Notes:
The family of this 72-nucleotide sequence from Anaerosolibacter carboniphilus is "Fluoride riboswitch aptamer (crcB RNA motif)". The family's consensus secondary structure is taken from published work. Lineage of the source: Bacteria > Bacillati > Peptostreptococcales > Thermotaleaceae > Anaerosolibacter. A search with the family's covariance model found it, with a score of 37 bits.
RNA sequence: AUCAGCAAGGGAGAUGAAGCUCUCCUAGGAUAGCAUCCGAAGCGUCUUUCGACUAAUAGCUUCUACCGGUAU
Dot-bracket structure: .........[[[[..((((((]]]]..................(((....)))....)))))).........